PyrR binding site: a 123-nucleotide RNA sequence from Alkalicella caledoniensis.
Its family is annotated with pyrimidine nucleobase biosynthetic process and pyrimidine nucleobase transport in the Gene Ontology.
Rfam describes the family as follows. This family represents the PyrR binding site and terminator structure. This RNA structure is found upstream of a variety of genes involved in pyrimidine biosynthesis and transport. The alignment also includes a portion of the antiterminator structure.
Rfam 15.1 lists 1,498 matches to the family in 930 species.
RNA sequence: GGUACCUUUAAUCCAGUACAGAGAGACUGGCAAGGUGAAUGACGAGUACUUAUGGGUGAAUACCUUUAAGUAACUCUAAGUUAGUCUACACACACCUUGUCUUCGGGCAAGGUGUUUUUGUUU
Numbered sequence: 001g002g003u004a005c006c007u008u009u010a011a012u013c014c015a016g017u018a019c020a021g022a023g024a025g026a027c028u029g030g031c032a033a034g035g036u037g038a039a040u041g042a043c044g045a046g047u048a049c050u051u052a053u054g055g056g057u058g059a060a061u062a063c064c065u066u067u068a069a070g071u072a073a074c075u076c077u078a079a080g081u082u083a084g085u086c087u088a089c090a091c092a093c094a095c096c097u098u099g100u101c102u103u104c105g106g107g108c109a110a111g112g113u114g115u116u117u118u119u120g121u122u123u
Stems, first nucleotide, its partner, number of pairs: 003037006013030005044075001047072006054065004090117001092115010